[Rfam]
RNA sequence: UGGUACUUUCUAAAUCUUGUGUUUCUUACACAAGAGCCUUGAAAGACCUAGUAUAUAAAUAAAUUAGGCC
Numbered sequence: 001u002g003g004u005a006c007u008u009u010c011u012a013a014a015u016c017u018u019g020u021g022u023u024u025c026u027u028a029c030a031c032a033a034g035a036g037c038c039u040u041g042a043a044a045g046a047c048c049u050a051g052u053a054u055a056u057a058a059a060u061a062a063a064u065u066a067g068g069c070c
Stems, first nucleotide, its partner, number of pairs: 002048003006045005016034007036069004
3'-terminal pseudoknot in SPCSV: a 70-nucleotide RNA sequence from polyscias crinivirus 1.
It scores 37 bits against the family's covariance model.
On this family, see Livieratos et al., J Gen Virol 2004: "Analysis of the RNA of Potato yellow vein virus: evidence for a tripartite genome and conserved 3'-terminal structures among members of the genus Crinivirus".
Rfam classes the family as a cis-regulatory element.
Rfam 15.1 lists 7 matches to the family in 6 species.